[Rfam]
Notes:
Rfam assigns this 356-nucleotide RNA sequence from Agitococcus lubricus to the family "transfer-messenger RNA".

Nucleotides: 356
Stems, first nucleotide, its partner, number of pairs: 001352007020325002023322005029316001034312004040307003044300005049068005055083006116136004121131001144171001146165004153191007195223001197221007208236004240274006247267003250263003254292003258287003329345005
Number, partner (000 for none) and nucleotide at each position: 001352g002351g003350g004349g005348a006347u007346g008000a009000c010000a011000u012000g013000g014000c015000u016000u017000c018000g019000a020325c021324g022000g023322c024321g025320g026319u027318g028000a029316u030000g031000a032000a033000a034312c035311u036310c037309u038000g039000a040307g041306g042305u043000g044300c045299a046298u047297g048296u049068c050067g051066a052065g053064a054000g055083u056082g057081a058080g059079g060078u061000g062000u063000c064053u065052c066051u067050c068049g069000u070000a071000a072000a073000u074000a075000a076000a077000a078060a079059u080058c081057u082056c083055a084000a085000a086000a087000u088000a089000u090000a091000g092000u093000c094000g095000c096000a097000a098000a099000c100000g101000a102000c103000g104000a105000a106000a107000c108000a109000u110000a111000c112000g113000c114000a115000c116136u117135c118134g119133c120000a121131g122000c123000u124000u125000a126000a127000u128000a129000g130000u131121u132000a133119g134118c135117g136116a137000a138000g139000c140000a141000a142000u143000g144171a145000a146165c147164c148163c149162a150000u151000g152000c153191g154190c155189c156188g157187g158186u159185g160000g161000c162149u163148g164147g165146g166000g167000g168000a169000u170000u171144u172000g173000g174000g175000c176000g177000u178000a179000a180000c181000g182000c183000u184000a185159c186158a187157c188156u189155g190154g191153c192000u193000a194000u195223g196000c197221u198220u199219u200218a201217u202216g203215u204000c205000u206000u207000g208236u209235c210234u211233c212000g213000c214000g215203g216202c217201a218200u219199a220198a221197a222000u223195c224000u225000a226000a227000a228000a229000c230000u231000u232000a233211g234210a235209g236208a237000a238000u239000c240274g241273u242272u243271g244270g245269c246000u247267a248266c249265g250263c251262c252261c253000u254292g255291u256290c257000g258287g259286u260285c261252g262251g263250g264000u265249c266248g267247u268000c269245g270244u271243c272242g273241a274240u275000u276000a277000a278000a279000u280000c281000a282000a283000u284000a285260g286259a287258c288000u289000a290256g291255a292254c293000u294000a295000a296048a297047c298046a299045u300044g301000u302000a303000g304000a305042g306041c307040c308000a309037a310036g311035a312034g313000c314000g315000u316029a317000g318027u319026g320025c321024u322023g323000a324021c325020g326000g327000a328000c329345g330344c331343g332342g333341g334000u335000u336000c337000a338000a339000u340000u341333c342332c343331c344330g345329c346007c347006a348005u349004c350003u351002c352001c353000a354000c355000c356000a
About the family: Bacterial tmRNA, also known as 10Sa RNA or SsrA, is named for its dual tRNA and mRNA-like properties. Its role is to liberate the mRNA from a stalled ribosome.
The family's consensus secondary structure is taken from published work.
The family's RNA type in Rfam is non-coding RNA gene.
Taxonomically the source falls in Agitococcus (Bacteria, Pseudomonadati, Pseudomonadota, Moraxellales).
The match comes from Rfam's covariance-model search (198 bits).